Shown here is a 215-nucleotide sequence from Ktedonobacteria bacterium brp13, a member of the family "HNH endonuclease-associated RNA and ORF (HEARO) RNA". The literature on the family includes a 2009 paper in Nature by Weinberg et al., "Exceptional structured noncoding RNAs revealed by bacterial metagenome analysis". By type it is a non-coding RNA gene. The source organism's lineage runs through Bacteria, Bacillati, Chloroflexota and Ktedonobacteria.

RNA sequence: GUGAACUCUCACUGAACUGAAGACUCAGUGGCUUCGUGAGAAGCCCAAGUUCACCAGACUCAACCGCAGAAAUGCGAGCUACGUUAGAGGGGUCAUGACACCUGCAGUUGACGCAUCAGACCGCUGCUCUGUCGCCUGAAGCUAAGUAGACCUGGGGCAAGGGUCGAUGCUUCAGGCGUAAAAAGCCUUUCUAACAGUGUCGAGAUGAGGAGGGU
Numbered sequence: 001g002u003g004a005a006c007u008c009u010c011a012c013u014g015a016a017c018u019g020a021a022g023a024c025u026c027a028g029u030g031g032c033u034u035c036g037u038g039a040g041a042a043g044c045c046c047a048a049g050u051u052c053a054c055c056a057g058a059c060u061c062a063a064c065c066g067c068a069g070a071a072a073u074g075c076g077a078g079c080u081a082c083g084u085u086a087g088a089g090g091g092g093u094c095a096u097g098a099c100a101c102c103u104g105c106a107g108u109u110g111a112c113g114c115a116u117c118a119g120a121c122c123g124c125u126g127c128u129c130u131g132u133c134g135c136c137u138g139a140a141g142c143u144a145a146g147u148a149g150a151c152c153u154g155g156g157g158c159a160a161g162g163g164u165c166g167a168u169g170c171u172u173c174a175g176g177c178g179u180a181a182a183a184a185g186c187c188u189u190u191c192u193a194a195c196a197g198u199g200u201c202g203a204g205a206u207g208a209g210g211a212g213g214g215u
Base pairs, nucleotide, nucleotide: 001054002053003052004051005050006049007047009031010030012028013027017022032043033042034041035040057201058200059199061197062080064078083195084194085193086192087191088190089189090188091187092186093185098132099131102126104124105123107121108120109119111215112214114212116210117209134177135176136175137174138173139172140171141170142169146168147167149165150164151163152162153160